[Rfam]
RNA sequence: CCCCGGAACACAGGAGAGAGCAGGCAGGCGUCAAUCACGCUGGCCUGCCGCCGAAGGCGCAAGCUCCCAUACUCGCUCAGGCCCCGUACUGUUUCCAUUCA
Numbered sequence: 001c002c003c004c005g006g007a008a009c010a011c012a013g014g015a016g017a018g019a020g021c022a023g024g025c026a027g028g029c030g031u032c033a034a035u036c037a038c039g040c041u042g043g044c045c046u047g048c049c050g051c052c053g054a055a056g057g058c059g060c061a062a063g064c065u066c067c068c069a070u071a072c073u074c075g076c077u078c079a080g081g082c083c084c085c086g087u088a089c090u091g092u093u094u095c096c097a098u099u100c101a
Stems, first nucleotide, its partner, number of pairs: 006096001008094001010092004020048006050082003053078002057076003063070001
RNA: Glycine riboswitch aptamer
Organism: Roseateles toxinivorans